The family of this 126-nucleotide sequence is "SAM-I/IV (S-adenosyl methionine) riboswitch aptamer". Rfam 15.1 lists 567 matches to the family in 508 species. Rfam's curators put it in the seed alignment. On this family, see Weinberg et al., RNA 2008: "The aptamer core of SAM-IV riboswitches mimics the ligand-binding site of SAM-I riboswitches". Rfam links the family to the GO terms S-adenosylmethionine metabolic process and regulation of gene expression.

[Rfam]
RNA sequence: GGGCGUCAUCAAGAAGUGCCGUGCCUCGUCGGCCCGGCAUGCCAACCUGAUCCGAAGUUCAAGGUGGUUUCUCUGGCCUUCCAGAGAGAUGCGCGUCGGAAGAACCGACGAACAAACCUUCGACUC
Numbered sequence: 001g002g003g004c005g006u007c008a009u010c011a012a013g014a015a016g017u018g019c020c021g022u023g024c025c026u027c028g029u030c031g032g033c034c035c036g037g038c039a040u041g042c043c044a045a046c047c048u049g050a051u052c053c054g055a056a057g058u059u060c061a062a063g064g065u066g067g068u069u070u071c072u073c074u075g076g077c078c079u080u081c082c083a084g085a086g087a088g089a090u091g092c093g094c095g096u097c098g099g100a101a102g103a104a105c106c107g108a109c110g111a112a113c114a115a116a117c118c119u120u121c122g123a124c125u126c
Stems, first nucleotide, its partner, number of pairs: 007091004015040001017039005041068003046064003049060002054120002057117001094110006